[Rfam]
RNA sequence: UUAGCGGUAGGAAAUGGUGUCUUCCUUUUAAAAACCGCGUUUGCUGAUGGCGCCUGCAAAUCA
Numbered sequence: 001u002u003a004g005c006g007g008u009a010g011g012a013a014a015u016g017g018u019g020u021c022u023u024c025c026u027u028u029u030a031a032a033a034a035c036c037g038c039g040u041u042u043g044c045u046g047a048u049g050g051c052g053c054c055u056g057c058a059a060a061u062c063a
Stems, first nucleotide, its partner, number of pairs: 010025004016054006037044002

This 63-nucleotide RNA sequence from Mucilaginibacter sp. belongs to the Rfam family "Fluoride riboswitch aptamer (crcB RNA motif)".
Gene Ontology terms of the family: positive regulation of gene expression and response to fluoride.